Alphaproteobacterial sRNA BjrC1505: a 140-nucleotide RNA from Lutibaculum baratangense. A search with the family's covariance model found it, with a score of 90 bits. The base pairs follow the family's consensus structure. Rfam classes the family as a small RNA.
RNA sequence: CCCGAAAUUAACCAUUUGAUAAUCUUUCCACGGUAAACACAGGGUUAUCCAGUCCUCUGGAUUCGAGUGGUUUCCUGUCCACUCUGUUUGACGCCUCCCUGUUAACCAAACUGAGCCGUCGUCAAGGCGGCUCUUUCUUU
Number, nucleotide and partner (000 for none) at each position: 001c044002c043003c042004g000005a000006a000007a000008u000009u000010a000011a000012c000013c000014a000015u037016u036017u000018g000019a000020u035021a034022a000023u032024c000025u030026u000027u000028c000029c000030a025031c000032g023033g000034u021035a020036a016037a015038c000039a000040c000041a000042g003043g002044g001045u000046u000047a000048u061049c060050c059051a058052g000053u000054c000055c000056u000057c000058u051059g050060g049061a048062u000063u000064c000065g084066a083067g082068u081069g080070g079071u000072u000073u000074c000075c000076u000077g000078u000079c070080c069081a068082c067083u066084c065085u000086g000087u000088u000089u000090g103091a102092c101093g100094c000095c000096u000097c000098c000099c000100u093101g092102u091103u090104a000105a000106c000107c000108a000109a000110a000111c000112u000113g133114a132115g131116c130117c129118g128119u127120c126121g000122u000123c000124a000125a000126g120127g119128c118129g117130g116131c115132u114133c113134u000135u000136u000137c000138u000139u000140u000